[Rfam]
RNA sequence: GUGUUCAUUAGAGAUCCUCUGAACACUUCACUAGGAUGUUUUCUUAGUGAGAUCCUACUGAAGUGUUUGGGGGAACUCCAAGUGACAC
Numbered sequence: 001g002u003g004u005u006c007a008u009u010a011g012a013g014a015u016c017c018u019c020u021g022a023a024c025a026c027u028u029c030a031c032u033a034g035g036a037u038g039u040u041u042u043c044u045u046a047g048u049g050a051g052a053u054c055c056u057a058c059u060g061a062a063g064u065g066u067u068u069g070g071g072g073g074a075a076c077u078c079c080a081a082g083u084g085a086c087a088c
Stems, first nucleotide, its partner, number of pairs: 005084001008081002011078003015074006022068002024065007032057004
Shown here is an 88-nucleotide RNA sequence from Artemisia annua, a member of the family "mir-395 microRNA precursor family".
Rfam describes the family as follows. mir-395 was identified in both Arabidopsis thaliana and Oryza sativa computationally and was later experimentally verified. mir-395 is thought to target mRNAs coding for ATP sulphurylases.
Pairs were carried over by alignment from the consensus structure, which was predicted with PFOLD.
On this family, see Jones-Rhoades and Bartel, Mol Cell 2004: "Computational Identification of Plant MicroRNAs and Their Targets, Including a Stress-Induced miRNA".